[Rfam]
This 56-nucleotide RNA sequence from Haliea sp. belongs to the Rfam family "Xanthine riboswitch aptamer (NMT1 RNA)".
The base pairs follow the family's consensus structure, which is taken from published work.
It scores 42 bits against the family's covariance model.
Nucleotides: 056
Stems, first nucleotide, its partner, number of pairs: 005052006015041001018043002021039001023037004
Number, partner (000 for none) and nucleotide at each position: 001000u002000u003000g004000c005052a006051g007050a008049g009048u010047a011000g012000a013000a014000g015041c016000a017000g018043g019042c020000a021039g022000c023037g024036g025035c026034g027000c028000c029000u030000u031000c032000a033000a034026c035025g036024c037023c038000a039021c040000g041015g042019g043018u044000c045000a046000u047010u048009g049008c050007u051006c052005u053000g054000g055000u056000u